[Rfam]
RNA sequence: GUGUCAUGGUCAUUGUUGACCAUUCAUAUAACCCCUGCAAUUGCUUUGCAGCUUAUGCGGGGGUUAUAUAACGGCCAAUAGAGACCUUUGACAU
Numbered sequence: 001g002u003g004u005c006a007u008g009g010u011c012a013u014u015g016u017u018g019a020c021c022a023u024u025c026a027u028a029u030a031a032c033c034c035c036u037g038c039a040a041u042u043g044c045u046u047u048g049c050a051g052c053u054u055a056u057g058c059g060g061g062g063g064u065u066a067u068a069u070a071a072c073g074g075c076c077a078a079u080a081g082a083g084a085c086c087u088u089u090g091a092c093a094u
Stems, first nucleotide, its partner, number of pairs: 001094006008086004013081006020074002023071002026069014043052001
Background: Shown here is a 94-nucleotide sequence from Medicago truncatula, a member of the family "MIR2587 microRNA precursor family". The base pairs follow the family's consensus structure, which was predicted with RNAalifold. It scores 92 bits against the family's covariance model. On this family, see Lelandais-Briere et al., Plant Cell 2009: "Genome-wide Medicago truncatula small RNA analysis revealed novel microRNAs and isoforms differentially regulated in roots and nodules". The source organism's lineage runs through Eukaryota, Embryophyta, eudicotyledons, Trifolieae and Medicago.